A member of the RNA family "rpsB sRNA" from a Kiloniellaceae bacterium, 140 nucleotides long. The base pairs follow the family's consensus structure, which is taken from published work. Lineage of the source: Bacteria > Pseudomonadati > Pseudomonadota > Rhodospirillales > Kiloniellaceae. The literature on the family includes a 2009 paper in BMC Genomics by Meyer et al., "Identification of candidate structured RNAs in the marine organism 'Candidatus Pelagibacter ubique'". The family's RNA type in Rfam is small RNA.
[Rfam]
RNA sequence: CACACGCGGGCAUUGCGGCCUUCGGGGAGACAUCCCGAAAGUCGCUCCGGUGUCUGAAAUCCCGGUUUUCAGCCCUUCUGGGCCGGAGUCAGGGAGCAGAUGACAGGCUCGCGGUGGACCAACCGGAGAAUAUCUCAUGG
Numbered sequence: 001c002a003c004a005c006g007c008g009g010g011c012a013u014u015g016c017g018g019c020c021u022u023c024g025g026g027g028a029g030a031c032a033u034c035c036c037g038a039a040a041g042u043c044g045c046u047c048c049g050g051u052g053u054c055u056g057a058a059a060u061c062c063c064g065g066u067u068u069u070c071a072g073c074c075c076u077u078c079u080g081g082g083c084c085g086g087a088g089u090c091a092g093g094g095a096g097c098a099g100a101u102g103a104c105a106g107g108c109u110c111g112c113g114g115u116g117g118a119c120c121a122a123c124c125g126g127a128g129a130a131u132a133u134c135u136c137a138u139g140g
Stems, first nucleotide, its partner, number of pairs: 001116003005113007015045002023037002026035001052101005